A member of the RNA family "c-di-GMP-I riboswitch aptamer" from Paenibacillus nasutitermitis, 84 nucleotides long. The base pairs follow the family's consensus structure, which is taken from published work.

[Rfam]
RNA sequence: UCUUAUGAUUGGCAAACCAAUUGAAAGAUUGGGACGCAAAAGCCACAGGUCUAAAACGAGUGAUAUGACAGCUGGGCUGCCGAA
Numbered sequence: 001u002c003u004u005a006u007g008a009u010u011g012g013c014a015a016a017c018c019a020a021u022u023g024a025a026a027g028a029u030u031g032g033g034a035c036g037c038a039a040a041a042g043c044c045a046c047a048g049g050u051c052u053a054a055a056a057c058g059a060g061u062g063a064u065a066u067g068a069c070a071g072c073u074g075g076g077c078u079g080c081c082g083a084a
Stems, first nucleotide, its partner, number of pairs: 012037002017032006041078004046074003049069003057062001